[Rfam]
RNA: traJ-II RNA
Organism: Rhizobium sp. LC145
RNA sequence: GGGCAAGAUGGGUGAAGUUAGCUAACCGGCGAGCCGGUCAUCUAUCUUCACUCCCCCUUAUUCGCACCUGGCGGUGCUCAACGGGCAUCUUGCUCUGCGAGGCU
Numbered sequence: 001g002g003g004c005a006a007g008a009u010g011g012g013u014g015a016a017g018u019u020a021g022c023u024a025a026c027c028g029g030c031g032a033g034c035c036g037g038u039c040a041u042c043u044a045u046c047u048u049c050a051c052u053c054c055c056c057c058u059u060a061u062u063c064g065c066a067c068c069u070g071g072c073g074g075u076g077c078u079c080a081a082c083g084g085g086c087a088u089c090u091u092g093c094u095c096u097g098c099g100a101g102g103c104u
Stems, first nucleotide, its partner, number of pairs: 001095009012051006019044003025038005055085003064077005
Dot-bracket structure: (((((((((..((((((.(((...(((((....)))))...))).))))))...(((......(((((....))))).....))).))))))))).........